RNA sequence: UGAGCACUUUCACAGGUCCUCCCUCAGGCUGUGGGGCCAGGAUUUGGUAGCUGGUGCUGAGAGAAAACCUUUGUUGGCAUCCUUGCCCUGGGACUGUGCCAGUGGCAGCUGUCAUUCAAUGGGACAAUU
Numbered sequence: 001u002g003a004g005c006a007c008u009u010u011c012a013c014a015g016g017u018c019c020u021c022c023c024u025c026a027g028g029c030u031g032u033g034g035g036g037c038c039a040g041g042a043u044u045u046g047g048u049a050g051c052u053g054g055u056g057c058u059g060a061g062a063g064a065a066a067a068c069c070u071u072u073g074u075u076g077g078c079a080u081c082c083u084u085g086c087c088c089u090g091g092g093a094c095u096g097u098g099c100c101a102g103u104g105g106c107a108g109c110u111g112u113c114a115u116u117c118a119a120u121g122g123g124a125c126a127a128u129u
Base pairs, nucleotide, nucleotide: 003058004057005056006055007054008053013046014045015044017042018041019040020039022036023035024034025033068123069122070121071119072118073117077113079112080111083108084107085106086105087104088102089101090100091099
The family of this 129-nucleotide RNA sequence is "Small nucleolar RNA SNORA30/SNORA37 family".
The literature on the family includes a 2001 paper in EMBO J by Huttenhofer et al., "RNomics: an experimental approach that identifies 201 candidates for novel, small, non-messenger RNAs in mouse".
Rfam's curators write: The members of this family belong to the H/ACA class of snoRNAs that guide the sites of modification of uridines to pseudouridines. This family includes human ACA30 (SNORA30), ACA37 (SNORA37) and the mouse homolog MBI-26. Both ACA37 and ACA30 are predicted to guide the pseudouridylation of residue U4643 of 28S rRNA.
The sequence is in the family's curated seed alignment.
The family has 11 seed sequences and 407 matches in Rfam 15.1.